[Rfam]
RNA: UnaL2 LINE 3' element
Organism: Coregonus sp. 'balchen'
RNA sequence: GGAAGCAAUGACUGUAAGUCGCUUUGGAUAAAAGUGUCUGCUAAAUGGCAUAUA
Dot-bracket structure: ............((((...((((((.....))))))..))).)...........